[Rfam]
RNA sequence: CUUCUUGUGCCUUUGGGACCUGCUGGCUGUGGUAGUCUCUCUGUCUAGCUGUUGAAAAGCAUGUUCUUGCUUAUUGGCAAAGCUAUAUCAGAUUCUGUCUUGCACAAGUAACAUUC
Numbered sequence: 001c002u003u004c005u006u007g008u009g010c011c012u013u014u015g016g017g018a019c020c021u022g023c024u025g026g027c028u029g030u031g032g033u034a035g036u037c038u039c040u041c042u043g044u045c046u047a048g049c050u051g052u053u054g055a056a057a058a059g060c061a062u063g064u065u066c067u068u069g070c071u072u073a074u075u076g077g078c079a080a081a082g083c084u085a086u087a088u089c090a091g092a093u094u095c096u097g098u099c100u101u102g103c104a105c106a107a108g109u110a111a112c113a114u115u116c
Stems, first nucleotide, its partner, number of pairs: 002055002006051002015041004020035005068113002071110001074107003077103004083091002
RNA: Small nucleolar RNA SNORA24
Organism: Neotoma lepida